RNA: skipping-rope RNA
RNA sequence: UAGAUCUGAGGUGAGGAAAUCCACCGCUCACGCACUGAGUCCGUAAACGGCCAGUCAAGGAAGACGCUGGAUGUGGUGGCCCAGCCAGAUCAU
Numbered sequence: 001u002a003g004a005u006c007u008g009a010g011g012u013g014a015g016g017a018a019a020u021c022c023a024c025c026g027c028u029c030a031c032g033c034a035c036u037g038a039g040u041c042c043g044u045a046a047a048c049g050g051c052c053a054g055u056c057a058a059g060g061a062a063g064a065c066g067c068u069g070g071a072u073g074u075g076g077u078g079g080c081c082c083a084g085c086c087a088g089a090u091c092a093u
Stems, first nucleotide, its partner, number of pairs: 003091006011031005021079005033060001034055004066085005